[Rfam]
Rfam assigns this 145-nucleotide RNA from Saccharopolyspora hordei to the family "c-di-AMP riboswitch aptamer (ydaO/yuaA leader)". The source organism's lineage runs through Bacteria, Bacillati, Actinomycetota, Pseudonocardiaceae and Saccharopolyspora. Its family is annotated with cyclic-di-AMP binding and regulation of gene expression in the Gene Ontology.
RNA sequence: GAAACAGGAACACCGGACAGGGGCGGGGGACCCAACACCGGGCUCCCCGAAGCCCUUGGGGUGAAGCCGGUUCCCCCGACCCGGCCGGGCUGCCUCUCAGCCCGAACCCGACAGCUGACCUCGCAGGCGCGGCAGGAGAGAGGAU
Number, nucleotide and partner (000 for none) at each position: 001g000002a000003a000004a000005c021006a000007g000008g000009a000010a000011c000012a000013c000014c000015g000016g000017a000018c000019a000020g000021g005022g000023g124024c123025g122026g121027g120028g119029g000030a000031c000032c000033c058034a057035a000036c000037a000038c000039c000040g000041g000042g000043c000044u000045c000046c000047c000048c000049g000050a000051a000052g000053c000054c000055c000056u000057u034058g033059g109060g108061g107062u000063g000064a000065a000066g000067c084068c083069g082070g081071u000072u000073c000074c000075c000076c000077c000078g000079a000080c000081c070082c069083g068084g067085c000086c000087g103088g102089g101090c100091u000092g000093c000094c000095u000096c000097u000098c000099a000100g090101c089102c088103c087104g000105a000106a000107c061108c060109c059110g000111a000112c000113a000114g000115c000116u000117g000118a000119c028120c027121u026122c025123g024124c023125a000126g000127g000128c000129g000130c000131g000132g000133c000134a000135g000136g000137a000138g000139a000140g000141a000142g000143g000144a000145u000